[Rfam]
RNA sequence: UGAGGAAGGCCCUUUGGACUCGGUAUUCAGGUACAGGGUUUAAACAACCUUAAGCUGCUGUGUUCAAAAGGCAUGGUAGUAGAGCGUUAAGGAAAAGGCUGGGAUGACUAGUUAUG
Numbered sequence: 001u002g003a004g005g006a007a008g009g010c011c012c013u014u015u016g017g018a019c020u021c022g023g024u025a026u027u028c029a030g031g032u033a034c035a036g037g038g039u040u041u042a043a044a045c046a047a048c049c050u051u052a053a054g055c056u057g058c059u060g061u062g063u064u065c066a067a068a069a070g071g072c073a074u075g076g077u078a079g080u081a082g083a084g085c086g087u088u089a090a091g092g093a094a095a096a097g098g099c100u101g102g103g104a105u106g107a108c109u110a111g112u113u114a115u116g
Stems, first nucleotide, its partner, number of pairs: 002014004016041006023034004045116002048092006054080002057077003061073004097113006
Dot-bracket structure: .((((.....)))).((((((.((((....)))).))))))...((.((((((((.(((.((((.....)))).))).))......))))))....((((((.....)))))).))
This 116-nucleotide RNA sequence from Desulfitobacterium hafniense belongs to the Rfam family "Group II catalytic intron D1-D4-2". It is one of the family's seed sequences. Rfam links the family to the GO term Group II intron splicing. The source organism's lineage runs through Bacteria, Clostridia, Eubacteriales, Desulfitobacteriaceae and Desulfitobacterium hafniense. Group II introns are found in rRNA, tRNA and mRNA of organelles in fungi, plants and protists, and also in mRNA in bacteria.